Small nucleolar RNA SNORA47: a 130-nucleotide RNA from Polypterus senegalus.

RNA sequence: UGGAGGUUGAGAAGGUGAAACAGUAAUAAUUGCUUUUUUCACCGGUUGUAACUUCCUAAAAUAACAGUGCUAAUGCAGUGAUUACUUCAUUUUUUUCCAAUGAAGUAGUUGUACUGCUGGCGUUCAAAAG
Dot-bracket structure: .(((((.......(((((((.(((.......))).))).))))........))))).................(((...(.........((.(.((......))).))........)..)))........
Overview:
Gene Ontology terms of the family: nucleolus and RNA processing. The source organism's lineage runs through Eukaryota, Opisthokonta, Metazoa, Euteleostomi and Polypterus. The family has 20 seed sequences and 733 matches in Rfam 15.1. The match comes from Rfam's covariance-model search (47 bits).